[Rfam]
Nucleotides: 110
Stems, first nucleotide, its partner, number of pairs: 014096006023087011
Number, partner (000 for none) and nucleotide at each position: 001000c002000u003000u004000a005000c006000a007000g008000a009000g010000u011000u012000u013000a014096u015095u016094g017093g018092c019091a020000u021000u022000c023087u024086g025085u026084c027083c028082a029081c030080c031079u032078c033077c034000u035000c036000a037000u038000c039000a040000u041000g042000g043000a044000a045000a046000a047000a048000g049000u050000u051000c052000g053000u054000a055000u056000u057000u058000u059000u060000c061000c062000c063000c064000u065000c066000u067000g068000g069000u070000u071000u072000u073000u074000c075000a076000u077033g078032g079031a080030g081029g082028u083027g084026g085025g086024c087023a088000u089000a090000c091019u092018g093017c094016c095015a096014a097000c098000u099000g100000u101000g102000c103000u104000c105000u106000g107000u108000u109000g110000g
Record summary: The record is a 110-nucleotide RNA sequence from Gossypium aridum, which matches "MIR394 microRNA precursor family" in Rfam. Its family is annotated with miRNA-mediated post-transcriptional gene silencing and RISC complex in the Gene Ontology. The organism belongs to Gossypium, within Eukaryota. On this family, see Jones-Rhoades and Bartel, Mol Cell 2004: "Computational identification of plant microRNAs and their targets, including a stress-induced miRNA".